[Rfam]
RNA: Small nucleolar RNA snR70
Organism: Saccharomyces kudriavzevii
RNA sequence: UAAUAUGAUGAUUUGUUGUCGACCGGGCGGACAUAUUAGUAUCUGUUGAGGAAUCGUCAUCUACUACGCAUCGUUCUUUUGUGUACAAAUUUUUAAAGGAGCGGUGUUGAUGGCAUUAUGGUUCUAAAGUGGAGAAUUGAUGAUUGGUCACAAGACAUCUGAUU
Numbered sequence: 001u002a003a004u005a006u007g008a009u010g011a012u013u014u015g016u017u018g019u020c021g022a023c024c025g026g027g028c029g030g031a032c033a034u035a036u037u038a039g040u041a042u043c044u045g046u047u048g049a050g051g052a053a054u055c056g057u058c059a060u061c062u063a064c065u066a067c068g069c070a071u072c073g074u075u076c077u078u079u080u081g082u083g084u085a086c087a088a089a090u091u092u093u094u095a096a097a098g099g100a101g102c103g104g105u106g107u108u109g110a111u112g113g114c115a116u117u118a119u120g121g122u123u124c125u126a127a128a129g130u131g132g133a134g135a136a137u138u139g140a141u142g143a144u145u146g147g148u149c150a151c152a153a154g155a156c157a158u159c160u161g162a163u164u
Stems, first nucleotide, its partner, number of pairs: 007159004016153004021149005034142007042133003046129002050125006056114006068107013